The record is a 53-nucleotide RNA sequence from Lactuca sativa, which matches "Plastid-psbl-rps4 3UTR RNA" in Rfam. A search with the family's covariance model found it, with a score of 68 bits. The organism belongs to Lactuca, within Eukaryota. Rfam describes the family as follows. Plastid psbl-rps4-psbC is a non-coding RNA (ncRNA) present in plastids. It is compose of two short stem-loops in tandem in the terminal 3 prime untranslate region (3UTR) mostly in psbl and rps4 seed plants genes. Pairs were carried over by alignment from the consensus structure, which was predicted with LocARNA.

RNA sequence: CGGAAAGAGAGGAAUUCGAACCCUCAGUACGAAUAAUUCGUAUAAUGGAUUAG
Numbered sequence: 001c002g003g004a005a006a007g008a009g010a011g012g013a014a015u016u017c018g019a020a021c022c023c024u025c026a027g028u029a030c031g032a033a034u035a036a037u038u039c040g041u042a043u044a045a046u047g048g049a050u051u052a053g
Stems, first nucleotide, its partner, number of pairs: 009025004027043006